[Rfam]
RNA sequence: CGGACAUGUCUCCUCGCCGUUAUCCACGGAGGCACUCGGCUAUGCUGUGGGACAACUUCCAAGAAGCUGCCCUUAGACGCGCUCGUUGUCAAAAGUAUGGUGUGAGGUAGGGUUGAAUGCCCU
Numbered sequence: 001c002g003g004a005c006a007u008g009u010c011u012c013c014u015c016g017c018c019g020u021u022a023u024c025c026a027c028g029g030a031g032g033c034a035c036u037c038g039g040c041u042a043u044g045c046u047g048u049g050g051g052a053c054a055a056c057u058u059c060c061a062a063g064a065a066g067c068u069g070c071c072c073u074u075a076g077a078c079g080c081g082c083u084c085g086u087u088g089u090c091a092a093a094a095g096u097a098u099g100g101u102g103u104g105a106g107g108u109a110g111g112g113u114u115g116a117a118u119g120c121c122c123u
Stems, first nucleotide, its partner, number of pairs: 001019003007034007035106004039101008049073003053069002056066004076090004109123005

Rfam assigns this 123-nucleotide RNA sequence from Aureibacillus halotolerans to the family "epsC RNA".
The source organism's lineage runs through Bacteria, Bacillati, Bacilli, Caryophanales and Aureibacillus.
It scores 94 bits against the family's covariance model.
By type it is a cis-regulatory element.